This 117-nucleotide sequence from Caldovatus sediminis belongs to the Rfam family "ALIL pseudoknot".

RNA sequence: GGCCAAUUUCGCGAUGGCAGAGCUCGACCGCCGCUCGAGGUCAUGAUCGCCUUCAUCGACGAUCACCGCGAGGUUUACGGGGUCGAGCCGAUCUGCCGGGUUCUGCCGAUCGCCCCG
Numbered sequence: 001g002g003c004c005a006a007u008u009u010c011g012c013g014a015u016g017g018c019a020g021a022g023c024u025c026g027a028c029c030g031c032c033g034c035u036c037g038a039g040g041u042c043a044u045g046a047u048c049g050c051c052u053u054c055a056u057c058g059a060c061g062a063u064c065a066c067c068g069c070g071a072g073g074u075u076u077a078c079g080g081g082g083u084c085g086a087g088c089c090g091a092u093c094u095g096c097c098g099g100g101u102u103c104u105g106c107c108g109a110u111c112g113c114c115c116c117g
Base pairs, nucleotide, nucleotide: 016032017031018030020028078117079116080115081114082113089112090111092109093108095106096105098103

Record summary
A search with the family's covariance model found it, with a score of 104 bits. Rfam classes the family as a cis-regulatory element. NCBI's taxonomy places the organism under Bacteria, Pseudomonadota, Alphaproteobacteria, Roseomonadaceae, Caldovatus.